[Rfam]
RNA sequence: AAGGCGGUAUCCUGAGAAGGAACUGCACUUAGCGCAAGUCAGGACAUCUGAAUGUUGAUGUGCUCAUCGUAAUGUUGGAUUCUGCUCUGAGCCUGUAAGGACCGAGACAGAAGG
Numbered sequence: 001a002a003g004g005c006g007g008u009a010u011c012c013u014g015a016g017a018a019g020g021a022a023c024u025g026c027a028c029u030u031a032g033c034g035c036a037a038g039u040c041a042g043g044a045c046a047u048c049u050g051a052a053u054g055u056u057g058a059u060g061u062g063c064u065c066a067u068c069g070u071a072a073u074g075u076u077g078g079a080u081u082c083u084g085c086u087c088u089g090a091g092c093c094u095g096u097a098a099g100g101a102c103c104g105a106g107a108c109a110g111a112a113g114g
Base pairs, nucleotide, nucleotide: 001030002029003028004026005025006024007023008022010021011020082110083109084108085106086105087104089102092100093099

Shown here is a 114-nucleotide RNA from Paenibacillus whitsoniae, a member of the family "pan motif".
The organism belongs to Paenibacillus, within Bacteria.
It scores 42 bits against the family's covariance model.